[Rfam]
RNA sequence: CACAGGGCUACACCCUGUGCUAUGGUAUUUCGCACUUUCAGUGCU
Numbered sequence: 001c002a003c004a005g006g007g008c009u010a011c012a013c014c015c016u017g018u019g020c021u022a023u024g025g026u027a028u029u030u031c032g033c034a035c036u037u038u039c040a041g042u043g044c045u
Stems, first nucleotide, its partner, number of pairs: 001019007032044005
Dot-bracket structure: (((((((.....)))))))............(((((...))))).
RNA: Acido-Lenti-1 RNA